[Rfam]
RNA sequence: GUUGCUAUGACGAUAUUGGAACACGAGAGUGUUCUUUGGGCAGUGGACAGGAUCUAUUGGUCUUGUUGUGAGCCUUUUUUUUUAUUAACGACUUCUCCUUCCACCGAGCAUU
Numbered sequence: 001g002u003u004g005c006u007a008u009g010a011c012g013a014u015a016u017u018g019g020a021a022c023a024c025g026a027g028a029g030u031g032u033u034c035u036u037u038g039g040g041c042a043g044u045g046g047a048c049a050g051g052a053u054c055u056a057u058u059g060g061u062c063u064u065g066u067u068g069u070g071a072g073c074c075u076u077u078u079u080u081u082u083u084a085u086u087a088a089c090g091a092c093u094u095c096u097c098c099u100u101c102c103a104c105c106g107a108g109c110a111u112u
Stems, first nucleotide, its partner, number of pairs: 001112001003110003
Dot-bracket structure: (.(((......................................................................................................))).)
A member of the RNA family "Small nucleolar RNA Z152/R70/R12/" from Chenopodium quinoa, 112 nucleotides long. The literature on the family includes a 2001 paper in J Mol Biol by Barneche et al., "Identification of 66 box C/D snoRNAs in Arabidopsis thaliana: extensive gene duplications generated multiple isoforms predicting new ribosomal RNA 2'-O-methylation sites". A search with the family's covariance model found it, with a score of 73 bits.